[Rfam]
RNA sequence: UCAAUAAAAUCAAAUAUGCCUCGUAUAAUUGUGAAGAUAUGGUUCACAAGUUUCUAGUGUCAGCCGAUAACUGACAACUAUGAGGGAAAUUAUCUGUUUU
Numbered sequence: 001u002c003a004a005u006a007a008a009a010u011c012a013a014a015u016a017u018g019c020c021u022c023g024u025a026u027a028a029u030u031g032u033g034a035a036g037a038u039a040u041g042g043u044u045c046a047c048a049a050g051u052u053u054c055u056a057g058u059g060u061c062a063g064c065c066g067a068u069a070a071c072u073g074a075c076a077a078c079u080a081u082g083a084g085g086g087a088a089a090u091u092a093u094c095u096g097u098u099u100u
Stems, first nucleotide, its partner, number of pairs: 019085007029049007058076006
RNA: Purine riboswitch aptamer
Organism: Halanaerobium hydrogeniformans